A member of the RNA family "c-di-AMP riboswitch aptamer (ydaO/yuaA leader)" from Streptomyces laurentii, 175 nucleotides long. Rfam links the family to the GO terms cyclic-di-AMP binding and regulation of gene expression.
RNA sequence: UCGCGACAAGCGCCGAAGGCAGGAGCGGGGGACCCAAGGUACGUGCCGGUCCCGGCCGUUGAGACAGACGGCCGAACGACCGGCUUGGGGUGAAGCCGCGUGCAAGGACACGCGGCCGGACAACUCACAGGUCCGAACCCGACAGCUCACCUCGUAGGCGUCGGUGAGGAGAAUC
Numbered sequence: 001u002c003g004c005g006a007c008a009a010g011c012g013c014c015g016a017a018g019g020c021a022g023g024a025g026c027g028g029g030g031g032a033c034c035c036a037a038g039g040u041a042c043g044u045g046c047c048g049g050u051c052c053c054g055g056c057c058g059u060u061g062a063g064a065c066a067g068a069c070g071g072c073c074g075a076a077c078g079a080c081c082g083g084c085u086u087g088g089g090g091u092g093a094a095g096c097c098g099c100g101u102g103c104a105a106g107g108a109c110a111c112g113c114g115g116c117c118g119g120a121c122a123a124c125u126c127a128c129a130g131g132u133c134c135g136a137a138c139c140c141g142a143c144a145g146c147u148c149a150c151c152u153c154g155u156a157g158g159c160g161u162c163g164g165u166g167a168g169g170a171g172a173a174u175c
Stems, first nucleotide, its partner, number of pairs: 011160004025155006035087004088140003096115006118134004